RNA sequence: GCCCAGAUGAGCAUCGGCGGUACGGUGUGCGUGCUUCAAGCCCGUAGGGGAUGAGAGUCCGAGUGGUUCAAUUCCACCUUAUGGGU
Numbered sequence: 001g002c003c004c005a006g007a008u009g010a011g012c013a014u015c016g017g018c019g020g021u022a023c024g025g026u027g028u029g030c031g032u033g034c035u036u037c038a039a040g041c042c043c044g045u046a047g048g049g050g051a052u053g054a055g056a057g058u059c060c061g062a063g064u065g066g067u068u069c070a071a072u073u074c075c076a077c078c079u080u081a082u083g084g085g086u
Base pairs, nucleotide, nucleotide: 001086002085003084004083005082007080009078012027013026014025015024016023028046029045030044031043033041049060050059051058052057063077064076065075066074
A member of the RNA family "Selenocysteine transfer RNA" from Trichonephila inaurata, 86 nucleotides long. Clan: tRNA clan. Taxonomically the source falls in Trichonephila inaurata (Eukaryota, Araneae, Nephilidae, Trichonephila). It scores 47 bits against the family's covariance model.